[Rfam]
RNA sequence: GAUGAAUUCCCGGAGAGGGAACUCCGGGAAGAUACAAUAAAUUAAGAUGCUCCUAAUGGAAUAGGUGACAAAGCCACGUU
Numbered sequence: 001g002a003u004g005a006a007u008u009c010c011c012g013g014a015g016a017g018g019g020a021a022c023u024c025c026g027g028g029a030a031g032a033u034a035c036a037a038u039a040a041a042u043u044a045a046g047a048u049g050c051u052c053c054u055a056a057u058g059g060a061a062u063a064g065g066u067g068a069c070a071a072a073g074c075c076a077c078g079u080u
Stems, first nucleotide, its partner, number of pairs: 007030009064075003

The record is an 80-nucleotide sequence from Triticum urartu, which matches "Plastid-rpl20 3UTR RNA" in Rfam.
The organism belongs to Triticum, within Eukaryota.
Rfam's curators write: Plastid rpl20 is a non-coding RNA (ncRNA) recognised in plastids. It was found in the three prime untranslated region (3UTR) of rpl20 gene, it presence in the 3UTR region sugest a role in transcript maduration.
On this family, see Richter et al., Plant Commun 2023: "Retrograde signaling in plants: A critical review focusing on the GUN pathway and beyond".
A search with the family's covariance model found it, with a score of 61 bits.
The family has 270 seed sequences and 587 matches in Rfam 15.1.